This 99-nucleotide RNA from Triticum turgidum belongs to the Rfam family "Small nucleolar RNA Z103". Pairs were carried over by alignment from the consensus structure, which was predicted with PFOLD. It is annotated as a C/D-box small nucleolar RNA. For this family Rfam cites "The high diversity of snoRNAs in plants: identification and comparative study of 120 snoRNA genes from Oryza sativa" (Chen et al., Nucleic Acids Res, 2003). Taxonomically the source falls in Triticum turgidum (Eukaryota, Streptophyta, Tracheophyta, Euphyllophyta).
RNA sequence: AUGGAAGUGAGGAUCCUUUCCCCAGCUGAUCGACUAUGAUUAUACUGUGCGCAAAUGAAAUCCUUUAUCAGAGGAUUCCAAGCCAGAAAUCUGAUCCAU
Numbered sequence: 001a002u003g004g005a006a007g008u009g010a011g012g013a014u015c016c017u018u019u020c021c022c023c024a025g026c027u028g029a030u031c032g033a034c035u036a037u038g039a040u041u042a043u044a045c046u047g048u049g050c051g052c053a054a055a056u057g058a059a060a061u062c063c064u065u066u067a068u069c070a071g072a073g074g075a076u077u078c079c080a081a082g083c084c085a086g087a088a089a090u091c092u093g094a095u096c097c098a099u
Stems, first nucleotide, its partner, number of pairs: 001099005